RNA: Small nucleolar RNA SNORD26
RNA sequence: CUACGAAGAUGAUAACUUUGAACUCUCUCUUGCUGAUGGGAUGGUGGAGAUGCUCCAAAAUAGGCUCUGAGUAGC
Dot-bracket structure: ((((..................................................................)))).